[Rfam]
RNA sequence: UCAUAUGGUAGGCAAACCUGAGGUAACUCAGGGGCGCAAAGCAUGAAGUCGGUAUCGAUGAUAUGCAUGAUCCCGAUGGUUCGGUUGCAACU
Numbered sequence: 001u002c003a004u005a006u007g008g009u010a011g012g013c014a015a016a017c018c019u020g021a022g023g024u025a026a027c028u029c030a031g032g033g034g035c036g037c038a039a040a041g042c043a044u045g046a047a048g049u050c051g052g053u054a055u056c057g058a059u060g061a062u063a064u065g066c067a068u069g070a071u072c073c074c075g076a077u078g079g080u081u082c083g084g085u086u087g088c089a090a091c092u
Stems, first nucleotide, its partner, number of pairs: 012037002017032006040086003045082003048077005054071004
Shown here is a 92-nucleotide RNA from Lachnospiraceae bacterium XPB1003, a member of the family "c-di-GMP-I riboswitch aptamer". NCBI's taxonomy places the organism under Bacteria, Bacillati, Clostridia, Lachnospirales, Lachnospiraceae.